[Rfam]
RNA: 7SK RNA
Organism: Calidris pygmaea
RNA sequence: GGAUGCGACGGUGAUCUGGCUGCAACAUCUGUCACCCCGUGGGUCACCAGGGUUGAUUUGGCUGAUCUGGCUGGUGAGGGGGGUGUCCCCCUCCCUCUCCACUCCAUGUGCGUCCCUCCCAAAACUGCACGCUUGGUCGAAGGGAAUGACUUUCCCCGAGAGAGACGCACCAUUCAUCAGUCAAGGUACAGGGAAGCUCUGCUCCCCUGCGAGAACCUCCAAACAAUUGAUACUUAAAAACUGUUUGGAAUAACAGAGGCAAAGUCCCCUCUCAAAAAAAAAAUUAAAAUCUGACUUGGUGUACAGUAAGAUUU
Number, nucleotide and partner (000 for none) at each position: 001g105002g104003a103004u000005g099006c000007g097008a096009c000010g000011g094012u000013g093014a092015u000016c000017u000018g090019g089020c000021u000022g000023c000024a000025a086026c085027a084028u083029c082030u081031g000032u079033c078034a000035c074036c073037c070038c069039g068040u000041g000042g067043g066044u065045c064046a000047c061048c060049a000050g000051g000052g000053u000054u000055g000056a000057u000058u000059u000060g048061g047062c000063u000064g045065a044066u043067c042068u039069g038070g037071c000072u000073g036074g035075u000076g000077a000078g033079g032080g000081g030082g029083g028084u027085g026086u025087c000088c000089c019090c018091c000092u014093c013094c011095c000096u008097c007098u000099c005100c000101a000102c000103u003104c002105c001106a000107u000108g000109u000110g000111c000112g000113u000114c167115c000116c164117u163118c162119c136120c135121a134122a133123a000124a000125c131126u000127g000128c000129a000130c000131g125132c000133u122134u121135g120136g119137u159138c158139g157140a000141a000142g000143g000144g155145a000146a153147u000148g000149a000150c000151u000152u000153u146154c000155c144156c000157c139158g138159a137160g000161a000162g118163a117164g116165a000166c000167g114168c000169a000170c000171c000172a000173u000174u000175c000176a000177u000178c000179a000180g000181u000182c000183a000184a000185g000186g000187u000188a000189c000190a000191g000192g000193g000194a000195a000196g000197c264198u263199c000200u000201g000202c259203u258204c000205c000206c000207c256208u255209g254210c000211g000212a000213g000214a000215a000216c000217c000218u249219c248220c247221a000222a000223a245224c000225a000226a242227u000228u000229g000230a000231u000232a000233c000234u000235u000236a000237a000238a000239a000240a000241c000242u226243g000244u000245u223246u000247g220248g219249a218250a000251u000252a000253a000254c209255a208256g207257a000258g203259g202260c000261a000262a000263a198264g197265u000266c000267c000268c000269c000270u000271c000272u000273c000274a000275a000276a000277a000278a000279a000280a000281a000282a000283a000284u000285u000286a000287a000288a314289a313290u000291c310292u309293g000294a307295c306296u303297u000298g000299g000300u000301g000302u000303a296304c000305a000306g295307u294308a000309a292310g291311a000312u000313u289314u288